[Rfam]
RNA: drz-agam-1 ribozyme
Organism: Hermetia illucens
RNA sequence: UUCUACCAAAACCCUAUCUCCACCUCCACGUGGUGAUCGCUGGUAGUUCUUUCUUCAAGAAAAACUGCAGACGGAGAAGG
Numbered sequence: 001u002u003c004u005a006c007c008a009a010a011a012c013c014c015u016a017u018c019u020c021c022a023c024c025u026c027c028a029c030g031u032g033g034u035g036a037u038c039g040c041u042g043g044u045a046g047u048u049c050u051u052u053c054u055u056c057a058a059g060a061a062a063a064a065c066u067g068c069a070g071a072c073g074g075a076g077a078a079g080g
Base pairs, nucleotide, nucleotide: 013080014079015078017076019074020073022034023033024032046066048064050062051061052060053059054058